Nucleotides: 340
Stems, first nucleotide, its partner, number of pairs: 001336011012304007020039007044324003048321005053210004060241004065206005070084005085099001086097004100201002105199002107195003121142002123138006150168006170190001171188007214261004224251005234244003268287004273282003
Number, partner (000 for none) and nucleotide at each position: 001336g002335g003334a004333g005332u006331a007330u008329u009328u010327u011326a012304g013303a014302u015301a016300a017299u018298c019000g020039c021038u022037g023036u024035g025034c026033c027000u028000u029000u030000a031000a032000u033026g034025g035024u036023g037022u038021g039020g040000a041000g042000g043000a044324a045323a046322g047000u048321c049320c050319g051318g052317g053210c054209u055208c056207c057000g058000c059000a060241g061240g062239g063238c064000a065206a066205a067204g068203c069202g070084c071083u072082g073081g074080a075000u076000a077000a078000c079000g080074u081073c082072c083071a084070g085099u086097u087096g088095g089094u090000g091000c092000g093000a094089a095088c096087c097086a098000a099085a100201g101200g102000a103000a104000a105199g106198u107195g108194c109193c110000a111000c112000a113000g114000a115000g116000a117000u118000a119000u120000a121142c122141c123138g124137c125136u126135u127134c128133u129000u130000u131000c132000g133128a134127g135126a136125a137124g138123u139000a140000a141122g142121g143000g144000u145000g146000a147000a148000a149000g150168g151167g152166u153165g154164g155163g156000g157000u158000a159000a160000g161000a162000g163155c164154c165153c166152a167151c168150c169000a170190g171188g172187u173186g174185c175184c176183a177182g178000g179000u180000g181000a182177c183176u184175g185174g186173u187172a188171c189000g190170c191000u192000u193109g194108g195107c196000a197000a198106a199105c200101c201100c202069c203068g204067c205066u206065u207056g208055g209054a210053g211000c212000a213000a214261g215260a216259c217258c218000g219000a220000a221000u222000a223000g224251a225250g226249g227248g228247g229000g230000a231000u232000g233000a234244g235243g236242c237000u238063g239062c240061c241060c242236g243235c244234u245000g246000a247228c248227c249226c250225c251224u252000g253000g254000g255000u256000a257000c258217g259216g260215u261214c262000g263000c264000u265000u266000g267000a268287g269286a270285a271284g272000u273282a274281c275280u276000g277000u278000a279000a280275a281274g282273u283000c284271c285270u286269u287268c288000c289000c290000a291000g292000a293000u294000a295000a296000a297000u298018g299017a300016u301015u302014a303013u304012c305000u306000u307000u308000u309000a310000c311000a312000c313000a314000g315000a316000a317052c318051c319050c320049g321048g322046c323045u324044u325000a326011u327010a328009a329008a330007a331006u332005g333004c334003u335002c336001c337000u338000u339000u340000u